[Rfam]
RNA sequence: GCCAGUUUAUGAUGACCUGCACUAAAGCCCAAAACCGGGGAGUGCAGGUCUGAUGUCCACUGGC
Dot-bracket structure: (((((........((((((((((....(((......))).)))))))))).........)))))